[Rfam]
RNA sequence: CGAGCAGUUUCACAGGCCCUCCCUGGGGCUAUGGGGCCAGGAUUUGGUAGCUGGUGCUGAGAAAAAAACCCUUGAUUGCAUCCUUGCCCUGGGACUGUGCCAGUGGCAGCUGUCACUCAACGGGGCAAUU
Numbered sequence: 001c002g003a004g005c006a007g008u009u010u011c012a013c014a015g016g017c018c019c020u021c022c023c024u025g026g027g028g029c030u031a032u033g034g035g036g037c038c039a040g041g042a043u044u045u046g047g048u049a050g051c052u053g054g055u056g057c058u059g060a061g062a063a064a065a066a067a068a069c070c071c072u073u074g075a076u077u078g079c080a081u082c083c084u085u086g087c088c089c090u091g092g093g094a095c096u097g098u099g100c101c102a103g104u105g106g107c108a109g110c111u112g113u114c115a116c117u118c119a120a121c122g123g124g125g126c127a128a129u130u
Base pairs, nucleotide, nucleotide: 003058004057005056006055008053013046014045015044018041019040020039022036023035024034069124070123071122072120073119074118075117077115078114080113081112084109085108086107087106088105089103090102091101092100
A member of the RNA family "Small nucleolar RNA SNORA30/SNORA37 family" from Saimiri boliviensis, 130 nucleotides long. From the family's description: The members of this family belong to the H/ACA class of snoRNAs that guide the sites of modification of uridines to pseudouridines. Pairs were carried over by alignment from the consensus structure, which was predicted with RNAfold.